[Rfam]
RNA sequence: GGAUGCGAGGGCAAUCUGGCUGUGACAUCUGUUACCCCAUUGAUCACCAGGGUUGAUUCGGCUGAUCUGGCUGGCUAGGCGGGUGUCCCCUUCCUCCCUCACCGCUCCAUGUGCGUCCCUCCUGAAGCUGCACGCUCGGUGGAAGAGGACGACCAUCCCAGAUAGGAGUGUACCAAUCUUUGGUCAAGGGUAUACGAUAGUUGCGCUCCCCUGCUAGAACCUCCAAACAAGCUAUACACUUUUAAACAGAGCAAGUGUUAUACAUUUCUUAAAAAGAGCAAGAACACCUAAAGAAGUCUAACAGUUUCCAAAGUGAUGCUGAAAAUGUAGCUGCUUAUGAACUUUU
Numbered sequence: 001g002g003a004u005g006c007g008a009g010g011g012c013a014a015u016c017u018g019g020c021u022g023u024g025a026c027a028u029c030u031g032u033u034a035c036c037c038c039a040u041u042g043a044u045c046a047c048c049a050g051g052g053u054u055g056a057u058u059c060g061g062c063u064g065a066u067c068u069g070g071c072u073g074g075c076u077a078g079g080c081g082g083g084u085g086u087c088c089c090c091u092u093c094c095u096c097c098c099u100c101a102c103c104g105c106u107c108c109a110u111g112u113g114c115g116u117c118c119c120u121c122c123u124g125a126a127g128c129u130g131c132a133c134g135c136u137c138g139g140u141g142g143a144a145g146a147g148g149a150c151g152a153c154c155a156u157c158c159c160a161g162a163u164a165g166g167a168g169u170g171u172a173c174c175a176a177u178c179u180u181u182g183g184u185c186a187a188g189g190g191u192a193u194a195c196g197a198u199a200g201u202u203g204c205g206c207u208c209c210c211c212u213g214c215u216a217g218a219a220c221c222u223c224c225a226a227a228c229a230a231g232c233u234a235u236a237c238a239c240u241u242u243u244a245a246a247c248a249g250a251g252c253a254a255g256u257g258u259u260a261u262a263c264a265u266u267u268c269u270u271a272a273a274a275a276g277a278g279c280a281a282g283a284a285c286a287c288c289u290a291a292a293g294a295a296g297u298c299u300a301a302c303a304g305u306u307u308c309c310a311a312a313g314u315g316a317u318g319c320u321g322a323a324a325a326u327g328u329a330g331c332u333g334c335u336u337a338u339g340a341a342c343u344u345u346u
Stems, first nucleotide, its partner, number of pairs: 001108003005102001007100005014092001018090002024087010035074002037070003042067004047061002117170001118168001120166002122139004127135002140162001147158003200288001202286001206282002212280003222273001227269001229267003310345002314340001316338002318334002321331001